[Rfam]
RNA sequence: AAAUAAAAGCAGAAGCACCCGCUUCUCGCCUUAGUUGAUAAUGUCACUGGGCUAGAUAGUUUUCACUGGUUCUAUUAGGUGAAGUACGCGCGGGUUCUGUAAGAGAACUCGUUUUUUUAUUGCCGU
Numbered sequence: 001a002a003a004u005a006a007a008a009g010c011a012g013a014a015g016c017a018c019c020c021g022c023u024u025c026u027c028g029c030c031u032u033a034g035u036u037g038a039u040a041a042u043g044u045c046a047c048u049g050g051g052c053u054a055g056a057u058a059g060u061u062u063u064c065a066c067u068g069g070u071u072c073u074a075u076u077a078g079g080u081g082a083a084g085u086a087c088g089c090g091c092g093g094g095u096u097c098u099g100u101a102a103g104a105g106a107a108c109u110c111g112u113u114u115u116u117u118u119a120u121u122g123c124c125g126u
Stems, first nucleotide, its partner, number of pairs: 011026006028052003034047002037044001090112009